[Rfam]
RNA sequence: CCGGAAACCGCACCCGAACCAUUUCGCGCGGCAGGAGCGGGGGAACCAGGUAAGCCGCUGUUCCGGAGAUCCUUUUCCGGUACGGCUCGGGGUGAAGCCGCACAUGUCCCGUACACGUGCGGCCGGACAUCUCCAGUCCGAACCCGACAGCUCACCUCGCAGGCGCCGGAGAGGAAUGCG
Number, nucleotide and partner (000 for none) at each position: 001c163002c162003g000004g000005a000006a000007a000008c000009c000010g000011c000012a000013c000014c000015c000016g000017a000018a000019c000020c000021a000022u000023u000024u000025c000026g000027c000028g000029c000030g000031g000032c000033a000034g000035g000036a000037g160038c159039g158040g157041g156042g155043g000044a000045a000046c000047c089048a000049g000050g000051u000052a000053a000054g000055c000056c000057g000058c000059u000060g000061u000062u000063c000064c000065g000066g000067a000068g000069a000070u000071c000072c000073u000074u000075u000076u000077c000078c000079g000080g000081u000082a000083c000084g000085g000086c000087u000088c000089g047090g145091g144092g143093u000094g000095a000096a000097g000098c122099c121100g120101c119102a118103c117104a000105u000106g000107u000108c000109c000110c000111g000112u000113a000114c000115a000116c000117g103118u102119g101120c100121g099122g098123c000124c000125g139126g138127a137128c136129a000130u000131c000132u000133c000134c000135a000136g128137u127138c126139c125140g000141a000142a000143c092144c091145c090146g000147a000148c000149a000150g000151c000152u000153c000154a000155c042156c041157u040158c039159g038160c037161a000162g002163g001164c000165g000166c000167c000168g000169g000170a000171g000172a000173g000174g000175a000176a000177u000178g000179c000180g000

Overview: Rfam assigns this 180-nucleotide RNA sequence from Streptomyces sp. NRRL F-4428 to the family "c-di-AMP riboswitch aptamer (ydaO/yuaA leader)".